[Rfam]
RNA: MIR403 microRNA precursor family
RNA sequence: GCGAAUUUCGUGUUUGUGCGUGAAUCUAACGAUCCUCAGCCUCAUCGUAGCAGUAAUCAGAUCAAUGAAUCGGAGUUUGAUGUAUGAAUUGAACUGUUGGCAGUCGUAUGUUCGUUAGAUUCACGCACAAACUCGUAAUACGUCU
Number, nucleotide and partner (000 for none) at each position: 001g143002c142003g141004a000005a139006u138007u137008u000009c000010g000011u000012g132013u131014u130015u129016g128017u127018g126019c125020g124021u123022g122023a121024a120025u119026c118027u000028a116029a115030c114031g000032a000033u000034c000035c000036u000037c000038a000039g000040c000041c000042u000043c110044a000045u000046c000047g000048u000049a000050g000051c000052a000053g101054u000055a000056a000057u000058c000059a000060g000061a000062u000063c000064a000065a000066u000067g000068a000069a000070u000071c000072g000073g000074a000075g000076u000077u000078u000079g000080a000081u000082g000083u000084a000085u000086g000087a000088a000089u000090u000091g000092a000093a000094c000095u000096g000097u000098u000099g000100g000101c053102a000103g000104u000105c000106g000107u000108a000109u000110g043111u000112u000113c000114g030115u029116u028117a000118g026119a025120u024121u023122c022123a021124c020125g019126c018127a017128c016129a015130a014131a013132c012133u000134c000135g000136u000137a007138a006139u005140a000141c003142g002143u001144c000145u000